[Rfam]
RNA sequence: GAAUCUGAUAAAGCUACACAGUGCCUUCACUAAGACCCUUUGUAGGAAUUUUUGGAAGCCUCUGCUUAGGUAGGGGUUA
Number, nucleotide and partner (000 for none) at each position: 001g000002a000003a000004u000005c000006u000007g000008a000009u000010a000011a000012a000013g000014c000015u000016a000017c000018a000019c000020a000021g038022u000023g036024c000025c034026u033027u032028c000029a000030c000031u000032a027033a026034g025035a000036c023037c000038c021039u000040u000041u000042g000043u000044a000045g000046g000047a000048a000049u000050u000051u000052u000053u000054g000055g000056a000057a078058g077059c076060c075061u074062c073063u072064g071065c070066u000067u000068a000069g000070g065071u064072a063073g062074g061075g060076g059077u058078u057079a000
The record is a 79-nucleotide sequence from Ancylostoma caninum, which matches "SmY spliceosomal RNA" in Rfam. The family has 61 seed sequences and 408 matches in Rfam 15.1. For this family Rfam cites "A novel family of C. elegans snRNPs contains proteins associated with trans-splicing" (MacMorris et al., RNA, 2007).